A member of the RNA family "DUF3800-I RNA", 113 nucleotides long. It is annotated as a small RNA. Rfam's curators put it in the seed alignment. About the family: Actinobacteria, Firmicutes, Fusobacteria, Proteobacteria (1 example), Tenericutes (2 examples).

RNA sequence: UAAUAUUAUACAUUUAGGUAUGGCUAUAAGUGAUCAAAUUGAUUAAGCGUAUUGUAAAUACGUCGCCUGGCUGGGGUAAACCUUCUAAUUAUAGAAGGUUUACUUUUUUAUGU
Numbered sequence: 001u002a003a004u005a006u007u008a009u010a011c012a013u014u015u016a017g018g019u020a021u022g023g024c025u026a027u028a029a030g031u032g033a034u035c036a037a038a039u040u041g042a043u044u045a046a047g048c049g050u051a052u053u054g055u056a057a058a059u060a061c062g063u064c065g066c067c068u069g070g071c072u073g074g075g076g077u078a079a080a081c082c083u084u085c086u087a088a089u090u091a092u093a094g095a096a097g098g099u100u101u102a103c104u105u106u107u108u109u110a111u112g113u
Stems, first nucleotide, its partner, number of pairs: 001008002021073006030066003033043003047063006076103012